The family of this 108-nucleotide RNA from Rhododendron simsii is "Small nucleolar RNA snoR100". The base pairs follow the family's consensus structure, which was predicted with WAR. The literature on the family includes a 2002 paper in Curr Biol by Marker et al., "Experimental RNomics: identification of 140 candidates for small non-messenger RNAs in the plant Arabidopsis thaliana".

RNA sequence: CAAAGAAGGAAGCAUGGUAAUGUGCACAUAAAUUGAAUUGGGUCUCUAGGCCUGCCUUUUAUGAUGCCAUUUGGCUUUGAUUUAGGGGCAUAGUUCCCCAGUAAAACA
Numbered sequence: 001c002a003a004a005g006a007a008g009g010a011a012g013c014a015u016g017g018u019a020a021u022g023u024g025c026a027c028a029u030a031a032a033u034u035g036a037a038u039u040g041g042g043u044c045u046c047u048a049g050g051c052c053u054g055c056c057u058u059u060u061a062u063g064a065u066g067c068c069a070u071u072u073g074g075c076u077u078u079g080a081u082u083u084a085g086g087g088g089c090a091u092a093g094u095u096c097c098c099c100a101g102u103a104a105a106a107c108a
Stems, first nucleotide, its partner, number of pairs: 012025004040091001042089003050081001052079001054075003